[Rfam]
RNA sequence: UUGCAAUAGUUAGCGUUUGUUUUAUUUGGUAGUGUUGAGUUGAAAGCUAUCAUAAGACACACGCGGCUAUUGCAG
Numbered sequence: 001u002u003g004c005a006a007u008a009g010u011u012a013g014c015g016u017u018u019g020u021u022u023u024a025u026u027u028g029g030u031a032g033u034g035u036u037g038a039g040u041u042g043a044a045a046g047c048u049a050u051c052a053u054a055a056g057a058c059a060c061a062c063g064c065g066g067c068u069a070u071u072g073c074a075g
Stems, first nucleotide, its partner, number of pairs: 001075006008068004013064003018059002021057003027052005
RNA: mir-970 microRNA precursor family
Organism: Lucilia cuprina